[Rfam]
The family of this 89-nucleotide sequence from Polarella glacialis is "Small nucleolar RNA U83B". Lineage of the source: Eukaryota > Sar > Dinophyceae > Suessiales > Polarella. U83B belongs to the C/D family of snoRNAs. U83B like U83A has no documented RNA target and they share the same host gene with the C/D box snoRNA U43 (RPL3). The base pairs follow the family's consensus structure. Gene Ontology terms of the family: nucleolus and RNA processing.
RNA sequence: CCCAGGCAAAGAUGAGAUCACUUGAACAGAGCACUGGACGCUGAGAACCAGUGAUGAGCAGUUCUUGUUGCCUUCCUUCUGAGCCUUGG
Number, nucleotide and partner (000 for none) at each position: 001c089002c088003c000004a086005g085006g000007c000008a000009a000010a000011g000012a000013u000014g000015a000016g000017a000018u000019c000020a000021c000022u000023u000024g000025a000026a000027c000028a000029g000030a000031g000032c000033a000034c000035u000036g000037g000038a000039c000040g000041c000042u000043g000044a000045g000046a000047a000048c000049c000050a000051g000052u000053g000054a000055u000056g000057a000058g000059c000060a000061g000062u000063u000064c000065u000066u000067g000068u000069u000070g000071c000072c000073u000074u000075c000076c000077u000078u000079c000080u000081g000082a000083g000084c000085c005086u004087u000088g002089g001